[Rfam]
RNA sequence: GUUUACAGCGAGUUUUGUUGGUUUGCUGUCAGCCUGUGCCAGUCGGCGCUGUGCAAAUCCAUGCAAAGCUCUUUGUUCCU
Numbered sequence: 001g002u003u004u005a006c007a008g009c010g011a012g013u014u015u016u017g018u019u020g021g022u023u024u025g026c027u028g029u030c031a032g033c034c035u036g037u038g039c040c041a042g043u044c045g046g047c048g049c050u051g052u053g054c055a056a057a058u059c060c061a062u063g064c065a066a067a068g069c070u071c072u073u074u075g076u077u078c079c080u
Base pairs, nucleotide, nucleotide: 005076006075007074008073010071011070012069013068014067015066016065017064018063020060021059022057023056024055025054026053031050032049033048